[Rfam]
RNA sequence: UCUCAAAAUUAUAUUUUUUCUAUAAAAAGAAAAAAAUGGAAAAAAUACA
Numbered sequence: 001u002c003u004c005a006a007a008a009u010u011a012u013a014u015u016u017u018u019u020c021u022a023u024a025a026a027a028a029g030a031a032a033a034a035a036a037u038g039g040a041a042a043a044a045a046u047a048c049a
Stems, first nucleotide, its partner, number of pairs: 014045010